[Rfam]
RNA sequence: UCACCCCAUGCGGGAGAGACCGGAUAGCCCAUACGGGGUAUCCGGCGCCGAAGGAGCAACCGCCCCCGGAAACUCUCAGGCAAAAGGACCGCUUGGGGCAG
Numbered sequence: 001u002c003a004c005c006c007c008a009u010g011c012g013g014g015a016g017a018g019a020c021c022g023g024a025u026a027g028c029c030c031a032u033a034c035g036g037g038g039u040a041u042c043c044g045g046c047g048c049c050g051a052a053g054g055a056g057c058a059a060c061c062g063c064c065c066c067c068g069g070a071a072a073c074u075c076u077c078a079g080g081c082a083a084a085a086g087g088a089c090c091g092c093u094u095g096g097g098g099c100a101g
Base pairs, nucleotide, nucleotide: 006096007095008094010092011091012090013089020045021044022043023042024041025040026039047081048080049079050077051076054075055074056073060068

The family of this 101-nucleotide sequence from Aerophototrophica crusticola is "Glycine riboswitch aptamer". This family represents the bacterial glycine riboswitch. It scores 73 bits against the family's covariance model.